[Rfam]
RNA sequence: UCCAUCGUGAGGUGGAAUCUGAAGGAAGCCGGAUGUGGGGAAAAUACUAACCCAUGGGCAAACCUCUGGCCUGACGAACAGAAAUCGCAUAUGAGGCUCUGUAUGAGGAUAAGGCCGCUAAACAGGUCAAAGUCCAAUUACUGCACGGAAUCAUGCAGUGUAAAUGCGGCAGGUAGAUGGAGGAAAAGAACGUGUG
Numbered sequence: 001u002c003c004a005u006c007g008u009g010a011g012g013u014g015g016a017a018u019c020u021g022a023a024g025g026a027a028g029c030c031g032g033a034u035g036u037g038g039g040g041a042a043a044a045u046a047c048u049a050a051c052c053c054a055u056g057g058g059c060a061a062a063c064c065u066c067u068g069g070c071c072u073g074a075c076g077a078a079c080a081g082a083a084a085u086c087g088c089a090u091a092u093g094a095g096g097c098u099c100u101g102u103a104u105g106a107g108g109a110u111a112a113g114g115c116c117g118c119u120a121a122a123c124a125g126g127u128c129a130a131a132g133u134c135c136a137a138u139u140a141c142u143g144c145a146c147g148g149a150a151u152c153a154u155g156c157a158g159u160g161u162a163a164a165u166g167c168g169g170c171a172g173g174u175a176g177a178u179g180g181a182g183g184a185a186a187a188g189a190a191c192g193u194g195u196g
Stems, first nucleotide, its partner, number of pairs: 001016006051196001053194003059188001063183006069174005085169006096161002100157007107135004113128004
A member of the RNA family "Group II catalytic intron D1-D4-3" from Hornefia porci, 196 nucleotides long.
Group II introns are found in rRNA, tRNA and mRNA of organelles in fungi, plants and protists, and also in mRNA in bacteria.